About this RNA: The family of this 96-nucleotide RNA sequence from Loxodonta africana is "mir-544 microRNA precursor family". Rfam links the family to the GO terms miRNA-mediated post-transcriptional gene silencing and RISC complex. Rfam 15.1 lists 10,750 matches to the family in 132 species.
RNA sequence: CUCACUGGGGAUCUUGUUAAAAUGCAGAUUCUAAUUCAGUGGGUCUGGAGUGGAAUCUGAGAUCCUGCAUUUCUAACAAGUCUCAGGUGAUGCCAG
Numbered sequence: 001c002u003c004a005c006u007g008g009g010g011a012u013c014u015u016g017u018u019a020a021a022a023u024g025c026a027g028a029u030u031c032u033a034a035u036u037c038a039g040u041g042g043g044u045c046u047g048g049a050g051u052g053g054a055a056u057c058u059g060a061g062a063u064c065c066u067g068c069a070u071u072u073c074u075a076a077c078a079a080g081u082c083u084c085a086g087g088u089g090a091u092g093c094c095a096g
Stems, first nucleotide, its partner, number of pairs: 003089003008083002013080007020072003024068004030062003